The record is a 109-nucleotide sequence from Daucus carota, which matches "Small nucleolar RNA snoR97" in Rfam. Gene Ontology terms of the family: RNA processing and nucleolus. Pairs were carried over by alignment from the consensus structure, which was predicted with WAR. The literature on the family includes a 2002 paper in Curr Biol by Marker et al., "Experimental RNomics: identification of 140 candidates for small non-messenger RNAs in the plant Arabidopsis thaliana".
RNA sequence: UUUAACAGGUGGGUUAAGUGUCUGAAAAACUCAAAAAGUCUGUGUUGUCUUAUCUUCUUCUUCCUUUGAUUAUCCCACAGGACUGGAGAUAAAUAACAACACAACAUCU
Numbered sequence: 001u002u003u004a005a006c007a008g009g010u011g012g013g014u015u016a017a018g019u020g021u022c023u024g025a026a027a028a029a030c031u032c033a034a035a036a037a038g039u040c041u042g043u044g045u046u047g048u049c050u051u052a053u054c055u056u057c058u059u060c061u062u063c064c065u066u067u068g069a070u071u072a073u074c075c076c077a078c079a080g081g082a083c084u085g086g087a088g089a090u091a092a093a094u095a096a097c098a099a100c101a102c103a104a105c106a107u108c109u
Stems, first nucleotide, its partner, number of pairs: 041103007056089005062082004